[Rfam]
Shown here is a 140-nucleotide sequence from Brevibacillus brevis, a member of the family "c-di-AMP riboswitch aptamer (ydaO/yuaA leader)". Rfam's curators write: This family represents a conserved RNA structure found upstream of the ydaO and yuaA genes in Bacillus subtilis and related genes in other bacteria. Taxonomically the source falls in Brevibacillus brevis (Bacteria, Caryophanales, Paenibacillaceae, Brevibacillus).
RNA sequence: AUCGAAAAAUAGCCGAAUUCCGCUUAGCGGAAACGGGGGAACCACGUUUUUGGGGUGAAUGGUUGCUACUCCUAGCAGCCUAGGGCGUCCUUUCGACCGAACCCUUCAGCUAACCUCGUAGGCUCACGAAGGGAGCAGUU
Dot-bracket structure: ..........((((...(((.........)))((((((....((......))(((.....((((((........))))))..((.(........).))...))).........)))))).))))................
Numbered sequence: 001a002u003c004g005a006a007a008a009a010u011a012g013c014c015g016a017a018u019u020c021c022g023c024u025u026a027g028c029g030g031a032a033a034c035g036g037g038g039g040a041a042c043c044a045c046g047u048u049u050u051u052g053g054g055g056u057g058a059a060u061g062g063u064u065g066c067u068a069c070u071c072c073u074a075g076c077a078g079c080c081u082a083g084g085g086c087g088u089c090c091u092u093u094c095g096a097c098c099g100a101a102c103c104c105u106u107c108a109g110c111u112a113a114c115c116u117c118g119u120a121g122g123c124u125c126a127c128g129a130a131g132g133g134a135g136c137a138g139u140u
Stems, first nucleotide, its partner, number of pairs: 011124004018032003033119006043052002053104003061080006083098002086095001